[Rfam]
RNA sequence: CCAGGUGGAUGAUCGGCUAAACCCGUCUUGUCCUGAGACAACGCCGAUCUGACCCACAUCGUGUGGG
Numbered sequence: 001c002c003a004g005g006u007g008g009a010u011g012a013u014c015g016g017c018u019a020a021a022c023c024c025g026u027c028u029u030g031u032c033c034u035g036a037g038a039c040a041a042c043g044c045c046g047a048u049c050u051g052a053c054c055c056a057c058a059u060c061g062u063g064u065g066g067g
Base pairs, nucleotide, nucleotide: 011049012048013047014046015045016044017043025039026038027037028036029035053067054066055065056064057063
RNA: Bacillaceae-1 RNA